[Rfam]
RNA sequence: GGGAUAUGAUGAGUGGUCAUUACUCGCAAUAAAAUAAAAUAUGCGAGAAGAGCGUUCCAGCCCAGCCUGGUUACGACAAUUUGGGCGCUCUCAUUUUUACCAAUCUGAUCCC
Numbered sequence: 001g002g003g004a005u006a007u008g009a010u011g012a013g014u015g016g017u018c019a020u021u022a023c024u025c026g027c028a029a030u031a032a033a034a035u036a037a038a039a040u041a042u043g044c045g046a047g048a049a050g051a052g053c054g055u056u057c058c059a060g061c062c063c064a065g066c067c068u069g070g071u072u073a074c075g076a077c078a079a080u081u082u083g084g085g086c087g088c089u090c091u092c093a094u095u096u097u098u099a100c101c102a103a104u105c106u107g108a109u110c111c112c
Base pairs, nucleotide, nucleotide: 001112002111003110004109014102015101016100017099023047024046025045026044027043049091050090051089052088053087054086055085056084068083069082070080071079
RNA: Small nucleolar RNA Z279/snoR105/snoR108